[Rfam]
RNA sequence: GGCGGGGUGUUGCUCAGCCCGUUCCUGAUUUAUGUGGUACUGGCCUUGCUGGUGACCGGUGCAUUGCGCCUGUUGCUCAGCCUGGUGCCGGCCGGGCGUUGGAUCUGGCAUGAAGCCUUGUUCGACUGUGCCCUG
Numbered sequence: 001g002g003c004g005g006g007g008u009g010u011u012g013c014u015c016a017g018c019c020c021g022u023u024c025c026u027g028a029u030u031u032a033u034g035u036g037g038u039a040c041u042g043g044c045c046u047u048g049c050u051g052g053u054g055a056c057c058g059g060u061g062c063a064u065u066g067c068g069c070c071u072g073u074u075g076c077u078c079a080g081c082c083u084g085g086u087g088c089c090g091g092c093c094g095g096g097c098g099u100u101g102g103a104u105c106u107g108g109c110a111u112g113a114a115g116c117c118u119u120g121u122u123c124g125a126c127u128g129u130g131c132c133c134u135g
Base pairs, nucleotide, nucleotide: 002067003066004065005064007062008061009060010059011058013051015048016047017046019043020042021041023039068133075097076096077095080092081091098131099130102127104125105124108121109120110119
This 135-nucleotide sequence from Pseudomonas corrugata belongs to the Rfam family "Pseudomonas sRNA P18". For this family Rfam cites "Identification of 17 Pseudomonas aeruginosa sRNAs and prediction of sRNA-encoding genes in 10 diverse pathogens using the bioinformatic tool sRNAPredict2" (Livny et al., Nucleic Acids Res, 2006). The organism belongs to Pseudomonas, within Bacteria. Pairs were carried over by alignment from the consensus structure, which was predicted with WAR. It scores 79 bits against the family's covariance model.